[Rfam]
RNA sequence: AACCAACCACACGGGAGCGCACAACGAGUGCGCUGAGAGGACGGCUGACGCGCCGUCGACCGUAGAACCUGUCCGGGUAAUGCCGGCGUAGGGAGAUGUGUAAUGAGUGCU
Numbered sequence: 001a002a003c004c005a006a007c008c009a010c011a012c013g014g015g016a017g018c019g020c021a022c023a024a025c026g027a028g029u030g031c032g033c034u035g036a037g038a039g040g041a042c043g044g045c046u047g048a049c050g051c052g053c054c055g056u057c058g059a060c061c062g063u064a065g066a067a068c069c070u071g072u073c074c075g076g077g078u079a080a081u082g083c084c085g086g087c088g089u090a091g092g093g094a095g096a097u098g099u100g101u102a103a104u105g106a107g108u109g110c111u
Base pairs, nucleotide, nucleotide: 006099007098010095011063012062013061014060017033018032019031020030021029040057041056042055043054044053068092069091070090071089073086074085075084076083
Shown here is a 111-nucleotide RNA sequence from Mycobacterium sp. shizuoka-1, a member of the family "TPP riboswitch aptamer (THI element)".
Gene Ontology term of the family: thiamine pyrophosphate binding.
Pairs were carried over by alignment from the consensus structure, which is taken from published work.
Taxonomically the source falls in Mycobacterium (Bacteria, Actinomycetota, Actinomycetes, Mycobacteriaceae).
Rfam describes the family as follows. Vitamin B(1) in its active form thiamin pyrophosphate (TPP) is an essential coenzyme that is synthesised by coupling of pyrimidine and thiazole moieties in bacteria.